[Rfam]
Overview:
MicX Vibrio cholerae sRNA: a 190-nucleotide RNA sequence from Vibrio renipiscarius. The match comes from Rfam's covariance-model search (131 bits). The family's RNA type in Rfam is small RNA. A reference for the family is Davis and Waldor (2007), "RNase E-dependent processing stabilizes MicX, a Vibrio cholerae sRNA", Mol Microbiol.
Nucleotides: 190
Base pairs, nucleotide, nucleotide: 014033015032016031017030018029019028020027040091043083045081046080047079048078049077050076051075056071057070058069059068060067099161100160101159102158103157104156112153113152114151115150116149117148118147119146120145163183164182165181166180167179168178169177170176171175
Number, partner (000 for none) and nucleotide at each position: 001000a002000u003000a004000a005000a006000a007000a008000u009000g010000a011000c012000a013000a014033a015032g016031g017030c018029g019028a020027c021000c022000u023000g024000u025000a026000a027020g028019u029018c030017g031016c032015c033014u034000c035000u036000u037000u038000g039000u040091u041000g042000c043083c044000c045081a046080c047079u048078u049077a050076a051075c052000a053000c054000u055000c056071u057070u058069g059068g060067u061000u062000u063000g064000g065000c066000c067060g068059c069058c070057g071056a072000u073000c074000a075051g076050u077049u078048a079047g080046g081045u082000a083043g084000g085000g086000u087000g088000c089000a090000a091040a092000a093000a094000u095000u096000g097000g098000u099161g100160u101159u102158a103157c104156g105000c106000a107000u108000a109000g110000c111000u112153g113152g114151c115150u116149a117148u118147u119146g120145g121000c122000u123000u124000a125000g126000a127000u128000u129000c130000c131000u132000u133000a134000c135000u136000a137000g138000a139000u140000a141000c142000a143000a144000a145120c146119u147118a148117a149116u150115a151114g152113u153112u154000g155000u156104u157103g158102u159101a160100a161099c162000c163183u164182g165181c166180c167179u168178g169177g170176g171175c172000a173000u174000u175171g176170c177169u178168c179167a180166g181165g182164c183163a184000u185000u186000u187000c188000u189000u190000u